[Rfam]
RNA: mir-9/mir-79 microRNA precursor family
Organism: Lottia gigantea
RNA sequence: CUGUUUUUGUCUUUGGUUAUCUAGCUGUAUGAUUGAAAUAGAAACAUUAUAAAGCUAGGUUACCAAAGGCAAAAAUGG
Numbered sequence: 001c002u003g004u005u006u007u008u009g010u011c012u013u014u015g016g017u018u019a020u021c022u023a024g025c026u027g028u029a030u031g032a033u034u035g036a037a038a039u040a041g042a043a044a045c046a047u048u049a050u051a052a053a054g055c056u057a058g059g060u061u062a063c064c065a066a067a068g069g070c071a072a073a074a075a076u077g078g
Base pairs, nucleotide, nucleotide: 001078002077003076004075005074007072008071009070010069011068012067013066014065015064016063017062019060020059021058022057023056024055025054026053028051029050030049031048032047033046